[Rfam]
RNA sequence: CUUGAAGGCUAGGGGUGCUUUCGUUUGAGUCAACUUAUCACGAAAGCUGAGAAAAACCCUUUGAACCUGACCCGGUUAAUGCCGGCGUAGGAAAGCCCUUGUUUUCCUUG
Number, nucleotide and partner (000 for none) at each position: 001c000002u000003u000004g000005a000006a000007g097008g096009c095010u094011a060012g059013g058014g057015g000016u054017g047018c046019u045020u044021u043022c042023g041024u040025u000026u000027g000028a000029g000030u000031c000032a000033a000034c000035u000036u000037a000038u000039c000040a024041c023042g022043a021044a020045a019046g018047c017048u000049g000050a000051g000052a000053a000054a016055a000056a000057c014058c013059c012060u011061u000062u000063g000064a000065a000066c091067c090068u089069g088070a000071c000072c085073c084074g083075g082076u000077u000078a000079a000080u000081g000082c075083c074084g073085g072086c000087g000088u069089a068090g067091g066092a000093a000094a010095g009096c008097c007098c000099u000100u000101g000102u000103u000104u000105u000106c000107c000108u000109u000110g000
Annotation: This 110-nucleotide sequence from Methylomonas sp. LL1 belongs to the Rfam family "TPP riboswitch aptamer (THI element)". It scores 73 bits against the family's covariance model.